[Rfam]
RNA sequence: UAUAAAAUUUUGAUUGUUGCUCAGAAAGCCGUGUCGAUUAAGCAAUUCGCUUUCGGGCAGUAAUCAAAGUCAAAUA
Numbered sequence: 001u002a003u004a005a006a007a008u009u010u011u012g013a014u015u016g017u018u019g020c021u022c023a024g025a026a027a028g029c030c031g032u033g034u035c036g037a038u039u040a041a042g043c044a045a046u047u048c049g050c051u052u053u054c055g056g057g058c059a060g061u062a063a064u065c066a067a068a069g070u071c072a073a074a075u076a
Stems, first nucleotide, its partner, number of pairs: 001076003008069007016061007024054006
About this RNA:
mir-315 microRNA precursor family: a 76-nucleotide RNA from Anopheles gambiae. Taxonomically the source falls in gambiae species complex (Eukaryota, Nematocera, Culicoidea, Pyretophorus). It is one of the family's seed sequences. The literature on the family includes a 2007 paper in Genome Res by Stark et al., "Systematic discovery and characterization of fly microRNAs using 12 Drosophila genomes". Pairs were carried over by alignment from the consensus structure, which was predicted with RNAalifold. Gene Ontology terms of the family: RISC complex and miRNA-mediated post-transcriptional gene silencing.